[Rfam]
RNA sequence: CUCCUUCUAUAAGUAGUGGUGCCGCAGGUACGUCCUGGUCACUCUACCUGCACACCGGUGCUUACAUUGGGAG
Numbered sequence: 001c002u003c004c005u006u007c008u009a010u011a012a013g014u015a016g017u018g019g020u021g022c023c024g025c026a027g028g029u030a031c032g033u034c035c036u037g038g039u040c041a042c043u044c045u046a047c048c049u050g051c052a053c054a055c056c057g058g059u060g061c062u063u064a065c066a067u068u069g070g071g072a073g
Stems, first nucleotide, its partner, number of pairs: 001073005010064006017057003024051007
RNA: mir-252 microRNA precursor family